[Rfam]
Rfam assigns this 61-nucleotide RNA from Marmota monax to the family "U7 small nuclear RNA".
Rfam 15.1 lists 10,439 matches to the family in 569 species.
A search with the family's covariance model found it, with a score of 47 bits.
RNA sequence: AAGCGUUACAACUCUUUUAGAAUUUGUCUAGCAGGCUUUCUGACUUGCUCAAAGGUCCCCU
Numbered sequence: 001a002a003g004c005g006u007u008a009c010a011a012c013u014c015u016u017u018u019a020g021a022a023u024u025u026g027u028c029u030a031g032c033a034g035g036c037u038u039u040c041u042g043a044c045u046u047g048c049u050c051a052a053a054g055g056u057c058c059c060c061u
Base pairs, nucleotide, nucleotide: 034058035057037055038054039053041051042050043049